A member of the RNA family "Arthropod 7SK RNA" from Culex quinquefasciatus, 329 nucleotides long.
It is one of the family's seed sequences.
Rfam 15.1 lists 229 matches to the family in 137 species.
For this family Rfam cites "Arthropod 7SK RNA" (Gruber et al., Mol Biol Evol, 2008).
Taxonomically the source falls in Culex pipiens complex (Eukaryota, Opisthokonta, Arthropoda, Diptera).
It is annotated as a non-coding RNA gene.

Nucleotides: 329
Base pairs, nucleotide, nucleotide: 001288002287003286004285005284006283007282008281021089022088023087024086025085036075037074038073041070042069045068046067047066048065049063050062299319300318301317302314303313304312305311306310
Number, partner (000 for none) and nucleotide at each position: 001288g002287g003286a004285g005284g006283u007282g008281u009000g010000u011000g012000u013000c014000u015000u016000c017000g018000u019000c020000u021089g022088u023087g024086a025085u026000g027000g028000c029000a030000c031000g032000a033000u034000a035000a036075c037074u038073g039000a040000a041070c042069a043000u044000u045068g046067a047066u048065c049063g050062c051000u052000u053000u054000g055000u056000u057000a058000g059000u060000u061000u062050g063049c064000a065048g066047a067046u068045c069042u070041g071000c072000u073038c074037a075036g076000u077000g078000g079000c080000a081000a082000c083000c084000c085025g086024u087023c088022a089021c090000a091000c092000u093000c094000u095000u096000g097000a098000u099000a100000a101000a102000c103000g104000g105000c106000a107000g108000u109000c110000c111000g112000g113000a114000u115000c116000u117000g118000g119000u120000a121000u122000c123000a124000c125000g126000g127000g128000u129000g130000a131000a132000c133000u134000c135000u136000c137000g138000c139000u140000g141000c142000a143000c144000g145000g146000c147000g148000c149000c150000g151000g152000g153000c154000c155000g156000a157000a158000c159000g160000c161000a162000c163000g164000a165000u166000u167000g168000a169000u170000g171000u172000c173000a174000u175000u176000c177000g178000u179000g180000a181000u182000a183000c184000a185000a186000g187000a188000c189000g190000c191000u192000g193000c194000c195000c196000a197000g198000a199000c200000c201000c202000a203000a204000c205000u206000a207000u208000u209000u210000c211000u212000c213000a214000a215000a216000a217000u218000u219000g220000u221000u222000g223000a224000g225000u226000a227000u228000a229000u230000c231000g232000u233000a234000a235000u236000u237000u238000a239000a240000u241000a242000c243000a244000g245000a246000u247000a248000g249000c250000u251000u252000a253000g254000c255000u256000u257000c258000g259000g260000a261000u262000u263000a264000a265000a266000a267000u268000u269000a270000c271000a272000u273000u274000g275000u276000u277000c278000a279000g280000a281008a282007c283006g284005c285004u286003u287002c288001c289000a290000u291000a292000u293000c294000a295000c296000u297000a298000g299319g300318g301317c302314a303313c304312c305311g306310c307000c308000g309000a310306g311305c312304g313303g314302u315000c316000g317301g318300c319299c320000c321000a322000u323000u324000a325000u326000u327000u328000u329000g